[Rfam]
RNA sequence: CUAACCCAAUGCAAACUCCUCCAGCUAUCGUUCCUGAGUGAUAGAAAGAGAAAGAUGUCACUUAAUCUUGCUGUAUGCUGGAAACUUCUAGAAUUAUUACCUAAAUAAACUAGAACAAUCAGCAGGAAACUCUUACAAAAAAUUUUGGCUAAUAAUUUGUAUAAAUUAUAAAUUUUAAGAGGAUCUUCAGAGACUAUACGCGAGACAAUUUAAAUAAUUAUCUUUAUUUAGCCAUAAUCAUAAAUAUUGAUAUUAAAUUGAAGAGAUAGUCCGAACAUAGUAGAGAUACUAUG
Numbered sequence: 001c002u003a004a005c006c007c008a009a010u011g012c013a014a015a016c017u018c019c020u021c022c023a024g025c026u027a028u029c030g031u032u033c034c035u036g037a038g039u040g041a042u043a044g045a046a047a048g049a050g051a052a053a054g055a056u057g058u059c060a061c062u063u064a065a066u067c068u069u070g071c072u073g074u075a076u077g078c079u080g081g082a083a084a085c086u087u088c089u090a091g092a093a094u095u096a097u098u099a100c101c102u103a104a105a106u107a108a109a110c111u112a113g114a115a116c117a118a119u120c121a122g123c124a125g126g127a128a129a130c131u132c133u134u135a136c137a138a139a140a141a142a143u144u145u146u147g148g149c150u151a152a153u154a155a156u157u158u159g160u161a162u163a164a165a166u167u168a169u170a171a172a173u174u175u176u177a178a179g180a181g182g183a184u185c186u187u188c189a190g191a192g193a194c195u196a197u198a199c200g201c202g203a204g205a206c207a208a209u210u211u212a213a214a215u216a217a218u219u220a221u222c223u224u225u226a227u228u229u230a231g232c233c234a235u236a237a238u239c240a241u242a243a244a245u246a247u248u249g250a251u252a253u254u255a256a257a258u259u260g261a262a263g264a265g266a267u268a269g270u271c272c273g274a275a276c277a278u279a280g281u282a283g284a285g286a287u288a289c290u291a292u293g
Stems, first nucleotide, its partner, number of pairs: 003032003042050001066205004071200001076124006086115005125186002130181004137176004190272001192271005208258006278291005
RNA: Group I catalytic intron